[Rfam]
RNA sequence: UGUUGUGGUAGUUUCUUUCUGGCACAUUUAAGUUUUCAGAUGGGUCUGACUUUACCACAUACAUUGUUAGGAGCGAACAAAAGCUUAAAGACUGAAAUAUCUCUCCUGAGUUUUUUUUGUAACAGAUGUUGGCUCUCACAAUC
Numbered sequence: 001u002g003u004u005g006u007g008g009u010a011g012u013u014u015c016u017u018u019c020u021g022g023c024a025c026a027u028u029u030a031a032g033u034u035u036u037c038a039g040a041u042g043g044g045u046c047u048g049a050c051u052u053u054a055c056c057a058c059a060u061a062c063a064u065u066g067u068u069a070g071g072a073g074c075g076a077a078c079a080a081a082a083g084c085u086u087a088a089a090g091a092c093u094g095a096a097a098u099a100u101c102u103c104u105c106c107u108g109a110g111u112u113u114u115u116u117u118u119g120u121a122a123c124a125g126a127u128g129u130u131g132g133c134u135c136u137c138a139c140a141a142u143c
Base pairs, nucleotide, nucleotide: 005058006057007056008055009054010053011052021046022045023044025042026041027040028039029038070136071135072134073133074132076085078083102128104126105125
This 143-nucleotide RNA from Cavia porcellus belongs to the Rfam family "Small nucleolar RNA SNORA12". Rfam describes the family as follows. U108 belongs to the H/ACA family of snoRNAs. The sequence is predicted to guide the pseudouridylation of the U372 residue in the 28S rRNA subunit. However it has not been reported as a pseudouridylation site. NCBI's taxonomy places the organism under Eukaryota, Eumetazoa, Bilateria, Euarchontoglires, Cavia. The literature on the family includes a 2005 paper in Nucleic Acids Res by Gu et al., "A novel experimental approach for systematic identification of box H/ACA snoRNAs from eukaryotes". The family's consensus secondary structure was predicted with RNAalifold.